The record is a 112-nucleotide RNA from Syntrophus aciditrophicus, which matches "Group II catalytic intron D1-D4-2" in Rfam.
Rfam describes the family as follows. Group II introns are found in rRNA, tRNA and mRNA of organelles in fungi, plants and protists, and also in mRNA in bacteria.
RNA sequence: UAUGACACAUAGAAGCCAGCUUGCAGAAGCAGGCUGCAAACCACCGUAAGCGGUGCUGGUAAAGAUCCGGAUGUCGUAAGCGUUACGGAAAACUGCAGUGAAAGCAUCAGGU
Dot-bracket structure: (((.....)))(.((((.((((....)))).)))).)....(.((((((((.((.((((......)).))..)).)).....)))))).....(((.......)))....).
It is one of the family's seed sequences. Pairs were carried over by alignment from the consensus structure.